[Rfam]
RNA sequence: UUCUUAUCACGAGCGACCGAGGGACUGGCCCUAUGACGUCGCGGCAACCCCCCGCAAGGGGACGGUGCCAAAUCCUGCGGAACGGCAACGUUCCGGGAGAUAAGGA
Dot-bracket structure: ((((((((....(((((...(((.[.[[)))......)))))((((.((((((....))))..))))))...(]].]((((((......))))))..)))))))))
SAM riboswitch aptamer (S box leader): a 106-nucleotide RNA sequence from Geobacter metallireducens. The organism belongs to Geobacter metallireducens, within Bacteria.